[Rfam]
RNA sequence: CAAAAUUCUUUUCGUUUCAGAAUCCAAACGCUUUGCCAUAGUUUGUUUAAGGUAAAGCGUAGGAAUUCUAAAACAAACCGAAU
Numbered sequence: 001c002a003a004a005a006u007u008c009u010u011u012u013c014g015u016u017u018c019a020g021a022a023u024c025c026a027a028a029c030g031c032u033u034u035g036c037c038a039u040a041g042u043u044u045g046u047u048u049a050a051g052g053u054a055a056a057g058c059g060u061a062g063g064a065a066u067u068c069u070a071a072a073a074c075a076a077a078c079c080g081a082a083u
Stems, first nucleotide, its partner, number of pairs: 010077003014074004019069003023065001025063001028060007036052002
RNA: mir-927 microRNA precursor family